[Rfam]
RNA sequence: UGAGGCUCAGGUGAUGGCGCCCGCCCGGAGCGUGAGCUUCGAACCGCAGCCCUGCUGAUGGCCCCUGUUGAUGG
Number, nucleotide and partner (000 for none) at each position: 001u000002g000003a000004g000005g000006c000007u000008c000009a000010g025011g024012u023013g022014a000015u000016g065017g064018c000019g062020c061021c060022c013023g012024c011025c010026c000027g000028g000029a000030g000031c000032g000033u000034g000035a000036g000037c000038u000039u000040c000041g000042a000043a000044c000045c000046g055047c054048a053049g000050c000051c000052c000053u048054g047055c046056u000057g000058a000059u000060g021061g020062c019063c000064c017065c016066u000067g000068u000069u000070g000071a000072u000073g000074g000

A member of the RNA family "Fluoride riboswitch aptamer (crcB RNA motif)" from Humibacillus sp. DSM 29435, 74 nucleotides long.
The family's consensus secondary structure is taken from published work.
It scores 34 bits against the family's covariance model.